[Rfam]
RNA sequence: UGGGGUGUCGCCAAGCGGUAAGGCAACGGGUUUUGAUCCCGUCAUGCGUUGGUUCGAAUCCAGCCACCCCAG
Numbered sequence: 001u002g003g004g005g006u007g008u009c010g011c012c013a014a015g016c017g018g019u020a021a022g023g024c025a026a027c028g029g030g031u032u033u034u035g036a037u038c039c040c041g042u043c044a045u046g047c048g049u050u051g052g053u054u055c056g057a058a059u060c061c062a063g064c065c066a067c068c069c070c071a072g
Stems, first nucleotide, its partner, number of pairs: 001071007010024003026042005048064005
Rfam assigns this 72-nucleotide RNA from Maribrevibacterium harenarium to the family "tRNA".
The family's consensus secondary structure is taken from published work.
Lineage of the source: Bacteria > Pseudomonadota > Oceanospirillales > Oceanospirillaceae > Maribrevibacterium.